Background
This 600-nucleotide part of an RNA from Helcion dunkeri belongs to the Rfam family "Eukaryotic small subunit ribosomal RNA". On this family, see Cannone et al., BMC Bioinformatics 2002: "The comparative RNA web (CRW) site: an online database of comparative sequence and structure information for ribosomal, intron, and other RNAs". Clan: SSU clan. Rfam 15.1 lists 75,755 matches to the family in 2,556 species. It is one of the family's seed sequences. Lineage of the source: Eukaryota > Opisthokonta > Eumetazoa > Spiralia > Helcion.
[Rfam]
RNA sequence: UGUCUCAAAGCUUAAGCCAUGCAAGUCUAAGUUCAGGCUUGUUCCUUUCGGGGAGCGAGCCGAAACUGCGAACGGCUCAUUAGUCAGAUAAGGUUCCUUGGCGAAAAGCGGGUCGGUUUAAUGGAUAACUGUGGUAAUUCUAGAGCUAAUACAUGCAACGCACCGUGGUCCCCCUCUUUUUCUCCAAGCUAAAGGUUUUUGAAGAAGGGGAAACGGCAUUUAUUCUCUGGACUAGAUCGCCCUAGCCUGCGAAGCUACCGUCAAAAGUAGCGACGGGGCGAAGCGACAAGUGUUGAAAUCCGAAUAACUGUGCCGAUCGCGGGGUCUUUCCGGGCCCCCGACGACUUUGCCAUGAAGUGUCUGUCCCAUCAAUUGGCGAUGGUCGGCGACCUGCCUACCACGGUGUUGACGGGUAACGGGGAAUCAGGGUUCGAUUCCGGAGAGGGAGCCUGCGAAACGGCUACCACCUCCAAGGAGGGCAGCAGGCGCGCAACUUACCCAAUCCCGACACGGGGAGGUAGUGACGAAAAAUAACGUGGCGGGGCCCUUUCGUGGUCGCCGCGGGCGGAAUGAGCGCAAUUUAAAAGAGUGUGCGAGGAG
Numbered sequence: 001u002g003u004c005u006c007a008a009a010g011c012u013u014a015a016g017c018c019a020u021g022c023a024a025g026u027c028u029a030a031g032u033u034c035a036g037g038c039u040u041g042u043u044c045c046u047u048u049c050g051g052g053g054a055g056c057g058a059g060c061c062g063a064a065a066c067u068g069c070g071a072a073c074g075g076c077u078c079a080u081u082a083g084u085c086a087g088a089u090a091a092g093g094u095u096c097c098u099u100g101g102c103g104a105a106a107a108g109c110g111g112g113u114c115g116g117u118u119u120a121a122u123g124g125a126u127a128a129c130u131g132u133g134g135u136a137a138u139u140c141u142a143g144a145g146c147u148a149a150u151a152c153a154u155g156c157a158a159c160g161c162a163c164c165g166u167g168g169u170c171c172c173c174c175u176c177u178u179u180u181u182c183u184c185c186a187a188g189c190u191a192a193a194g195g196u197u198u199u200u201g202a203a204g205a206a207g208g209g210g211a212a213a214c215g216g217c218a219u220u221u222a223u224u225c226u227c228u229g230g231a232c233u234a235g236a237u238c239g240c241c242c243u244a245g246c247c248u249g250c251g252a253a254g255c256u257a258c259c260g261u262c263a264a265a266a267g268u269a270g271c272g273a274c275g276g277g278g279c280g281a282a283g284c285g286a287c288a289a290g291u292g293u294u295g296a297a298a299u300c301c302g303a304a305u306a307a308c309u310g311u312g313c314c315g316a317u318c319g320c321g322g323g324g325u326c327u328u329u330c331c332g333g334g335c336c337c338c339c340g341a342c343g344a345c346u347u348u349g350c351c352a353u354g355a356a357g358u359g360u361c362u363g364u365c366c367c368a369u370c371a372a373u374u375g376g377c378g379a380u381g382g383u384c385g386g387c388g389a390c391c392u393g394c395c396u397a398c399c400a401c402g403g404u405g406u407u408g409a410c411g412g413g414u415a416a417c418g419g420g421g422a423a424u425c426a427g428g429g430u431u432c433g434a435u436u437c438c439g440g441a442g443a444g445g446g447a448g449c450c451u452g453c454g455a456a457a458c459g460g461c462u463a464c465c466a467c468c469u470c471c472a473a474g475g476a477g478g479g480c481a482g483c484a485g486g487c488g489c490g491c492a493a494c495u496u497a498c499c500c501a502a503u504c505c506c507g508a509c510a511c512g513g514g515g516a517g518g519u520a521g522u523g524a525c526g527a528a529a530a531a532u533a534a535c536g537u538g539g540c541g542g543g544g545c546c547c548u549u550u551c552g553u554g555g556u557c558g559c560c561g562c563g564g565g566c567g568g569a570a571u572g573a574g575c576g577c578a579a580u581u582u583a584a585a586a587g588a589g590u591g592u593g594c595g596a597g598g599a600g
Stems, first nucleotide, its partner, number of pairs: 003529001005527002009522001010489001016487003020484003025069002030067003037061001076442003085363003090358001094356002100351004121154003129145002132142003164215003169210004220307006235294003279285002317344003323339002365413003372404003380400004385395002417439004421432004444465002447462003467478004495520001497519003503515005535567003539562004544557001546555002574594002578590001580588001